[Rfam]
RNA sequence: CCUCCGUCCUCCCCGCACAGGAGGGCGGACCGGGGAGACGGGGCUCUCUGCCCUGACCGCCUCAUCUCCUCGUCUUCGGCCGGCCGGGACCGCACACCCCACGGCCGAUGGUGCUCCGGGCUGCGGUGCCGGGAGGGUUGAGGGUCCCUCCCAGGCGC
Numbered sequence: 001c002c003u004c005c006g007u008c009c010u011c012c013c014c015g016c017a018c019a020g021g022a023g024g025g026c027g028g029a030c031c032g033g034g035g036a037g038a039c040g041g042g043g044c045u046c047u048c049u050g051c052c053c054u055g056a057c058c059g060c061c062u063c064a065u066c067u068c069c070u071c072g073u074c075u076u077c078g079g080c081c082g083g084c085c086g087g088g089a090c091c092g093c094a095c096a097c098c099c100c101a102c103g104g105c106c107g108a109u110g111g112u113g114c115u116c117c118g119g120g121c122u123g124c125g126g127u128g129c130c131g132g133g134a135g136g137g138u139u140g141a142g143g144g145u146c147c148c149u150c151c152c153a154g155g156c157g158c
Stems, first nucleotide, its partner, number of pairs: 003029004008024005032071005038065001040063002043060002045056002076108007086099003112128004117123002131152007